[Rfam]
RNA sequence: CACCAAAACUUCUAGUCAGGAUAUUUUCCAUUUCUUUGUGAAUAUACUCUCAAGAAAGUAUCUGUUACUGUUUUGGAAGAUUGAUAGUACUCACUUCUGUUUCUAUCUGUUUUAGAUAGUCUAUACAGAACUGAUGGGUAAUUUUCGUUUUGAAGAUAUGCCAUCAACUUCAGAGUAUCGGGGCACCUAUGAGUUGAAUACAAAACACGUUCCAAUACGUGACUAUUUUUGUUUUCGUAGUAAGGAACCCUACAUUA
Numbered sequence: 001c002a003c004c005a006a007a008a009c010u011u012c013u014a015g016u017c018a019g020g021a022u023a024u025u026u027u028c029c030a031u032u033u034c035u036u037u038g039u040g041a042a043u044a045u046a047c048u049c050u051c052a053a054g055a056a057a058g059u060a061u062c063u064g065u066u067a068c069u070g071u072u073u074u075g076g077a078a079g080a081u082u083g084a085u086a087g088u089a090c091u092c093a094c095u096u097c098u099g100u101u102u103c104u105a106u107c108u109g110u111u112u113u114a115g116a117u118a119g120u121c122u123a124u125a126c127a128g129a130a131c132u133g134a135u136g137g138g139u140a141a142u143u144u145u146c147g148u149u150u151u152g153a154a155g156a157u158a159u160g161c162c163a164u165c166a167a168c169u170u171c172a173g174a175g176u177a178u179c180g181g182g183g184c185a186c187c188u189a190u191g192a193g194u195u196g197a198a199u200a201c202a203a204a205a206c207a208c209g210u211u212c213c214a215a216u217a218c219g220u221g222a223c224u225a226u227u228u229u230u231g232u233u234u235u236c237g238u239a240g241u242a243a244g245g246a247a248c249c250c251u252a253c254a255u256u257a
Stems, first nucleotide, its partner, number of pairs: 003076005019063010032042003087178006095130006103119006133165005141157007180251004186245003195237004202229004208219003
The family of this 257-nucleotide RNA from Lachancea fermentati is "Small nucleolar RNA snR191". The organism belongs to Lachancea, within Eukaryota. By type it is an H/ACA-box small nucleolar RNA. The match comes from Rfam's covariance-model search (181 bits).